[Rfam]
Mycobacterium sRNA ncrMT1302: a 109-nucleotide sequence from Mycobacterium shinjukuense.
RNA sequence: AAGCGACCGAACCAAAGUGCCGGAAGAUGGGGUGGUAGCCGGCCGCGUCGACCCGCGUAGGGCGGAGUCAGACGCCCCCCGUCGAGUCCUUCCGGGCCUGCCCAUGUGC
Numbered sequence: 001a002a003g004c005g006a007c008c009g010a011a012c013c014a015a016a017g018u019g020c021c022g023g024a025a026g027a028u029g030g031g032g033u034g035g036u037a038g039c040c041g042g043c044c045g046c047g048u049c050g051a052c053c054c055g056c057g058u059a060g061g062g063c064g065g066a067g068u069c070a071g072a073c074g075c076c077c078c079c080c081g082u083c084g085a086g087u088c089c090u091u092c093c094g095g096g097c098c099u100g101c102c103c104a105u106g107u108g109c
Stems, first nucleotide, its partner, number of pairs: 003090001005088003020042004028034001045075004053065003094103003
Rfam classes the family as a small RNA.
The base pairs follow the family's consensus structure, which was predicted with WAR.